Shown here is a 122-nucleotide RNA sequence from Fulvimarina endophytica, a member of the family "Rhizobiales sRNA Atu_C8". Taxonomically the source falls in Fulvimarina (Bacteria, Pseudomonadati, Pseudomonadota, Hyphomicrobiales). It scores 88 bits against the family's covariance model. Pairs were carried over by alignment from the consensus structure, which was predicted with CMfinder. It is annotated as a small RNA.

RNA sequence: GACGCACACCACCAUUCUCGUAAUCGUAGAACCGCGCACACGACCGGCAGCGUAGCUGCCAGGCGAAUGCCACGUGUGCGCGAAGACAAGGGCCCCCGGAGGCCCUUUUUUUAUGCUUGGAA
Numbered sequence: 001g002a003c004g005c006a007c008a009c010c011a012c013c014a015u016u017c018u019c020g021u022a023a024u025c026g027u028a029g030a031a032c033c034g035c036g037c038a039c040a041c042g043a044c045c046g047g048c049a050g051c052g053u054a055g056c057u058g059c060c061a062g063g064c065g066a067a068u069g070c071c072a073c074g075u076g077u078g079c080g081c082g083a084a085g086a087c088a089a090g091g092g093c094c095c096c097c098g099g100a101g102g103c104c105c106u107u108u109u110u111u112u113a114u115g116c117u118u119g120g121a122a
Stems, first nucleotide, its partner, number of pairs: 009026001029118002032115001033082010046060005063070002089106006
On this family, see Wilms et al., RNA Biol 2012: "Deep sequencing uncovers numerous small RNAs on all four replicons of the plant pathogen Agrobacterium tumefaciens".